mir-33 microRNA precursor family: a 69-nucleotide RNA from Drosophila melanogaster. Rfam links the family to the GO terms RISC complex and gene silencing by miRNA. Taxonomically the source falls in Sophophora (Eukaryota, Metazoa, Diptera, Ephydroidea).

RNA sequence: CGAAGGUGCAUUGUAGUCGCAUUGUCUGUCCCAAUUGCUUCAGGCAAUACAACUUCAGUGCAAGCUCUG
Number, nucleotide and partner (000 for none) at each position: 001c069002g068003a000004a066005g000006g065007u062008g061009c060010a059011u058012u057013g056014u000015a054016g053017u000018c000019g050020c000021a048022u047023u046024g045025u044026c043027u042028g000029u000030c000031c000032c000033a000034a000035u000036u000037g000038c000039u000040u000041c000042a027043g026044g025045c024046a023047a022048u021049a000050c019051a000052a000053c016054u015055u000056c013057a012058g011059u010060g009061c008062a007063a000064g000065c006066u004067c000068u002069g001